[Rfam]
The record is a 57-nucleotide RNA sequence, which matches "Plastid-psbA-3 3UTR RNA" in Rfam. Its Rfam clan is "Plastid-psbA 3UTR RNA clan". It is annotated as a cis-regulatory element. The family's consensus secondary structure was predicted with LocARNA. Rfam's curators write: Plastid psbA-3 is a non-coding RNA (ncRNA) present in plastids. It was identified in inverted repeat sequences in the 3 prime untranslate region (3UTR) of photosystem II quinone-binding protein (psbA).
RNA sequence: GGGGAGCAAUAACAACCUCUUGAUAGAACAAGAGUUUUGUUAUUGCUCCUUUUUUUU
Numbered sequence: 001g002g003g004g005a006g007c008a009a010u011a012a013c014a015a016c017c018u019c020u021u022g023a024u025a026g027a028a029c030a031a032g033a034g035u036u037u038u039g040u041u042a043u044u045g046c047u048c049c050u051u052u053u054u055u056u057u
Stems, first nucleotide, its partner, number of pairs: 001051013017034006